This 78-nucleotide sequence from Nocardioides dongxiaopingii belongs to the Rfam family "ZMP/ZTP riboswitch aptamer (pfl RNA motif)".
RNA sequence: UGCCGGCACACGACUGGCGCAGGUGGGUGACCACCGGGGAGUGAACGUCGGGGGUCAUCGUCCGCCUGGGUGGCCCCU
Dot-bracket structure: ..(((((.(((..(([[[[...((((....))))..))..)))...)))))...(((((...]]]]..))))).....
Numbered sequence: 001u002g003c004c005g006g007c008a009c010a011c012g013a014c015u016g017g018c019g020c021a022g023g024u025g026g027g028u029g030a031c032c033a034c035c036g037g038g039g040a041g042u043g044a045a046c047g048u049c050g051g052g053g054g055u056c057a058u059c060g061u062c063c064g065c066c067u068g069g070g071u072g073g074c075c076c077c078u
Stems, first nucleotide, its partner, number of pairs: 003051005009043003014038002016066004023034004055073005
Its family is annotated with regulation of purine nucleotide biosynthetic process and one-carbon metabolic process in the Gene Ontology.